RNA sequence: CUGUCAGGUUCGGGAGAAUCCGGCGGGCUUACCCCCCGACGGUGCCGAAGGAGCAACCGCCCCGGUAAACUCUCAGGCGCAAGGGACCGUUUCUGGCAA
Numbered sequence: 001c002u003g004u005c006a007g008g009u010u011c012g013g014g015a016g017a018a019u020c021c022g023g024c025g026g027g028c029u030u031a032c033c034c035c036c037c038g039a040c041g042g043u044g045c046c047g048a049a050g051g052a053g054c055a056a057c058c059g060c061c062c063c064g065g066u067a068a069a070c071u072c073u074c075a076g077g078c079g080c081a082a083g084g085g086a087c088c089g090u091u092u093c094u095g096g097c098a099a
Stems, first nucleotide, its partner, number of pairs: 006094003011089003020042003044078003047074002051072003057065002